[Rfam]
RNA sequence: UUGAAGUUCCAUCUAUCAAUGGAUAAGACUUCGAGUUUAGUGUAUACGAGUUCUUGAAAGUAAAUGAGCAAUAACCAAUUCCUUAUUUUCUCAAGAGGAUUGGUAGUGUUCAUUU
Numbered sequence: 001u002u003g004a005a006g007u008u009c010c011a012u013c014u015a016u017c018a019a020u021g022g023a024u025a026a027g028a029c030u031u032c033g034a035g036u037u038u039a040g041u042g043u044a045u046a047c048g049a050g051u052u053c054u055u056g057a058a059a060g061u062a063a064a065u066g067a068g069c070a071a072u073a074a075c076c077a078a079u080u081c082c083u084u085a086u087u088u089u090c091u092c093a094a095g096a097g098g099a100u101u102g103g104u105a106g107u108g109u110u111c112a113u114u115u
Stems, first nucleotide, its partner, number of pairs: 008023005062115009072105002077100001080097001082095003
RNA: Plastid-psbA-1 3UTR RNA
Organism: Momordica charantia